[Rfam]
RNA sequence: UAAAGCAGAUGACGAAUCUAUCUAUGCUUAACACUGAAUUAUUUUGUGUGGAUAAAAACUCCGCUUAUUAUCUGAUGCUACU
Numbered sequence: 001u002a003a004a005g006c007a008g009a010u011g012a013c014g015a016a017u018c019u020a021u022c023u024a025u026g027c028u029u030a031a032c033a034c035u036g037a038a039u040u041a042u043u044u045u046g047u048g049u050g051g052a053u054a055a056a057a058a059c060u061c062c063g064c065u066u067a068u069u070a071u072c073u074g075a076u077g078c079u080a081c082u
Base pairs, nucleotide, nucleotide: 004079005078006077007076

Shown here is an 82-nucleotide sequence from Beta vulgaris, a member of the family "Small nucleolar RNA R16". A reference for the family is Marker et al. (2002), "Experimental RNomics: identification of 140 candidates for small non-messenger RNAs in the plant Arabidopsis thaliana", Curr Biol. It is annotated as a C/D-box small nucleolar RNA. NCBI's taxonomy places the organism under Eukaryota, Streptophyta, Amaranthaceae, Betoideae, Beta vulgaris.